[Rfam]
Rfam assigns this 220-nucleotide sequence from Gossypium barbadense to the family "Plant small nucleolar RNA U3". Lineage of the source: Eukaryota > Streptophyta > Pentapetalae > rosids > Gossypium. Gene Ontology terms of the family: nucleolus and RNA processing. By type it is a C/D-box small nucleolar RNA. The literature on the family includes a 2010 paper in RNA Biol by Marz and Stadler, "Comparative analysis of eukaryotic U3 snoRNA".
RNA sequence: ACGACCUUACUUGAACAGGAUCUGUUCUAUAGGCUCGUACCUCUGUGUCCUUAAGUUCAAAAGAGACAGGAUUUCAAGUCUGGUUGAUGAAUCACGACUGUGUGAUCUGAGCGUGAUUACUGGUUUGGGGUAUGCCCUCGCUGGUUUCACUUCUACCGCAGAGGAUCGUUCUUAGCUUGCCUUGAGCGGCUGGGAAGGUUACGCAGUUGUCUGACAGGCU
Number, nucleotide and partner (000 for none) at each position: 001a038002c037003g035004a000005c033006c032007u031008u000009a000010c000011u000012u000013g027014a026015a025016c024017a023018g022019g000020a000021u000022c018023u017024g016025u015026u014027c013028u000029a000030u000031a007032g006033g005034c000035u003036c000037g002038u001039a000040c000041c000042u000043c069044u068045g067046u066047g000048u064049c063050c000051u061052u060053a000054a000055g000056u000057u000058c000059a000060a052061a051062a000063g049064a048065g000066a046067c045068a044069g043070g000071a000072u000073u000074u000075c000076a000077a000078g219079u218080c217081u216082g215083g000084u000085u000086g000087a000088u000089g000090a000091a000092u000093c000094a000095c000096g000097a207098c206099u205100g204101u203102g202103u201104g200105a199106u198107c197108u196109g000110a170111g169112c168113g167114u000115g000116a000117u000118u000119a000120c000121u158122g157123g156124u155125u000126u000127g152128g151129g150130g000131u000132a147133u000134g145135c144136c143137c000138u000139c000140g000141c000142u000143g136144g135145u134146u000147u132148c000149a000150c129151u128152u127153c000154u000155a124156c123157c122158g121159c000160a000161g000162a000163g000164g000165a000166u000167c113168g112169u111170u110171c000172u193173u192174a191175g190176c189177u000178u188179g187180c186181c000182u000183u000184g000185a000186g180187c179188g178189g176190c175191u174192g173193g172194g000195a000196a108197g107198g106199u105200u104201a103202c102203g101204c100205a099206g098207u097208u000209g000210u000211c000212u000213g000214a000215c082216a081217g080218g079219c078220u000